[Rfam]
RNA: Mason-Pfizer monkey virus packaging signal
Organism: Mus spicilegus
RNA sequence: UGGCCCCAAAAGUGAGGCUGGAGUACAAAGGGAUCAUUGAAGACCACUGCAGUGUUUUUGGUUGGCCAAUGAAUUUUGUAUGGAAGAUGCCUUGCAUGGGAACCUGCUGCCUCAACUAGGGAUCCUGGUAAGUCUGAAGUGAUCAUUGGGACAGAUGUUGAAUAGCCAUGAAUUAUUUUUGGAAGGGUUGAAAAAUACUUUAAAGGCACAAUGGAUAAAGUUUAAAAUAUAUGAUUUGCUUGCAUGUUUUGAUUUUGUUAAAGAGAUUUGUCCAU
Numbered sequence: 001u002g003g004c005c006c007c008a009a010a011a012g013u014g015a016g017g018c019u020g021g022a023g024u025a026c027a028a029a030g031g032g033a034u035c036a037u038u039g040a041a042g043a044c045c046a047c048u049g050c051a052g053u054g055u056u057u058u059u060g061g062u063u064g065g066c067c068a069a070u071g072a073a074u075u076u077u078g079u080a081u082g083g084a085a086g087a088u089g090c091c092u093u094g095c096a097u098g099g100g101a102a103c104c105u106g107c108u109g110c111c112u113c114a115a116c117u118a119g120g121g122a123u124c125c126u127g128g129u130a131a132g133u134c135u136g137a138a139g140u141g142a143u144c145a146u147u148g149g150g151a152c153a154g155a156u157g158u159u160g161a162a163u164a165g166c167c168a169u170g171a172a173u174u175a176u177u178u179u180u181g182g183a184a185g186g187g188u189u190g191a192a193a194a195a196u197a198c199u200u201u202a203a204a205g206g207c208a209c210a211a212u213g214g215a216u217a218a219a220g221u222u223u224a225a226a227a228u229a230u231a232u233g234a235u236u237u238g239c240u241u242g243c244a245u246g247u248u249u250u251g252a253u254u255u256u257g258u259u260a261a262a263g264a265g266a267u268u269u270g271u272c273c274a275u
Stems, first nucleotide, its partner, number of pairs: 006031002012026003035049002038046001086124003090120002097109003129153001133150004159202003163197002209251003213247001215245002219237002222234003260275001263272002